[Rfam]
RNA sequence: UAGAACAAUGUAGGUAAGGGAAGUCGGCAAAAUAGAUCCGUAACUUCGGGAAAAGGAUUGGCUCUAAGGGUUGAGCGGAUGGAGCCGUCGCUCUGAAGCUUGCGUCUAGGAGUGGCUUACUGUGGAUGGCUCUCGGGCUGACUACGGCGAGCUGCUCUCUGAUGCAGGUGAACGAGUAAUGGUCACGUGCCUGUGAGACGCAAGUUUCACCACUUCCUUCGCAAAGAACAACCAACUUAGAACUGGAGCGGACAAGGGGAAUCCGACUGUUUAAUUAAAACAAAGCAUUGCGAUGGUCUGAAAAGAUGUUGACGCAAUGUGAUUUCUGCCCAGUGCUCUGAAUGUCAAAGUGGAGAAAUUCAACAAAGCGCGGGUAAACGGCGGGAGUAACUAUGACUCUCUUAAGGUAGCCAAAUGCCUCGUCAUCUAAUUAGUGACGCGCAUGAAUGGAUUAACGAGAUUCCCACUGUCCCUAUCUACUAUCUAGCGAAACCACAGCCAAGGGAACGGGCUUGGAAAA
Numbered sequence: 001u002a003g004a005a006c007a008a009u010g011u012a013g014g015u016a017a018g019g020g021a022a023g024u025c026g027g028c029a030a031a032a033u034a035g036a037u038c039c040g041u042a043a044c045u046u047c048g049g050g051a052a053a054a055g056g057a058u059u060g061g062c063u064c065u066a067a068g069g070g071u072u073g074a075g076c077g078g079a080u081g082g083a084g085c086c087g088u089c090g091c092u093c094u095g096a097a098g099c100u101u102g103c104g105u106c107u108a109g110g111a112g113u114g115g116c117u118u119a120c121u122g123u124g125g126a127u128g129g130c131u132c133u134c135g136g137g138c139u140g141a142c143u144a145c146g147g148c149g150a151g152c153u154g155c156u157c158u159c160u161g162a163u164g165c166a167g168g169u170g171a172a173c174g175a176g177u178a179a180u181g182g183u184c185a186c187g188u189g190c191c192u193g194u195g196a197g198a199c200g201c202a203a204g205u206u207u208c209a210c211c212a213c214u215u216c217c218u219u220c221g222c223a224a225a226g227a228a229c230a231a232c233c234a235a236c237u238u239a240g241a242a243c244u245g246g247a248g249c250g251g252a253c254a255a256g257g258g259g260a261a262u263c264c265g266a267c268u269g270u271u272u273a274a275u276u277a278a279a280a281c282a283a284a285g286c287a288u289u290g291c292g293a294u295g296g297u298c299u300g301a302a303a304a305g306a307u308g309u310u311g312a313c314g315c316a317a318u319g320u321g322a323u324u325u326c327u328g329c330c331c332a333g334u335g336c337u338c339u340g341a342a343u344g345u346c347a348a349a350g351u352g353g354a355g356a357a358a359u360u361c362a363a364c365a366a367a368g369c370g371c372g373g374g375u376a377a378a379c380g381g382c383g384g385g386a387g388u389a390a391c392u393a394u395g396a397c398u399c400u401c402u403u404a405a406g407g408u409a410g411c412c413a414a415a416u417g418c419c420u421c422g423u424c425a426u427c428u429a430a431u432u433a434g435u436g437a438c439g440c441g442c443a444u445g446a447a448u449g450g451a452u453u454a455a456c457g458a459g460a461u462u463c464c465c466a467c468u469g470u471c472c473c474u475a476u477c478u479a480c481u482a483u484c485u486a487g488c489g490a491a492a493c494c495a496c497a498g499c500c501a502a503g504g505g506a507a508c509g510g511g512c513u514u515g516g517a518a519a520a
Base pairs, nucleotide, nucleotide: 001486002485003484004483010480011479012478013477014476015475016474018472019471020470035059036058037057038056039055044049060244061243063241064240065239066238067237068236069233070232071231072230073229075222076221077220078219079218081217082216083215084214085182086181087180090177091176092175098169099168100167101166103164104163105162106161109158110157111156112155113154114153115152116151117150118149120147121146122145123144124143125142127140128139129138130137245249257465258464259463260462261461262460263459264457265456268282269281270280285320286319287318288317289316290315291314292313296307297306298305299304324451325450326449328382329381330380333379334378335375336374337373338372340371343370344369345368351362352361353360354359383401384400385399386398387397388396402406422438423437424436425435426434499516500515501514502513503512
Overview
This 520-nucleotide part of an RNA from Plasmodiophora brassicae belongs to the Rfam family "Eukaryotic large subunit ribosomal RNA". The family's consensus secondary structure is taken from published work. On this family, see Yusupov et al., Science 2001: "Crystal structure of the ribosome at 5.5 A resolution". Rfam 15.1 lists 107,465 matches to the family in 2,616 species. Rfam links the family to the GO terms ribosome and structural constituent of ribosome.